A member of the RNA family "Small nucleolar RNA SNORA79" from Lottia gigantea, 147 nucleotides long.
RNA sequence: UGAUGACGUUCCCCAGUUCUAGAUGAGAUAUGUAGAAACUGGUUUUAGUUCAUCACAUAUUAACAUCAGAACUAACUUCACCCAGAAUAGUCAACUAAUCAGGUGAUUGGUUCAUGGCUAUUCUUGGUUUUGCGGGUUCUCACAAAU
Numbered sequence: 001u002g003a004u005g006a007c008g009u010u011c012c013c014c015a016g017u018u019c020u021a022g023a024u025g026a027g028a029u030a031u032g033u034a035g036a037a038a039c040u041g042g043u044u045u046u047a048g049u050u051c052a053u054c055a056c057a058u059a060u061u062a063a064c065a066u067c068a069g070a071a072c073u074a075a076c077u078u079c080a081c082c083c084a085g086a087a088u089a090g091u092c093a094a095c096u097a098a099u100c101a102g103g104u105g106a107u108u109g110g111u112u113c114a115u116g117g118c119u120a121u122u123c124u125u126g127g128u129u130u131u132g133c134g135g136g137u138u139c140u141c142a143c144a145a146a147u
Base pairs, nucleotide, nucleotide: 001055002054003053004052005051006050007048013042014041015040016039017038019035020034021033069139070138071137072136073135082126084124085123086122087121088120089119090118091117097112098111099110100109
Record summary: Taxonomically the source falls in Lottia (Eukaryota, Spiralia, Lophotrochozoa, Lottiidae). ACA65 (SNORA79) is a member of the H/ACA class of snoRNAs that guide the sites of modification of uridines to pseudouridines. This snoRNA was identified by computational screening and its expression in mouse experimentally verified by Northern blot and primer extension analysis. Rfam classes the family as an H/ACA-box small nucleolar RNA.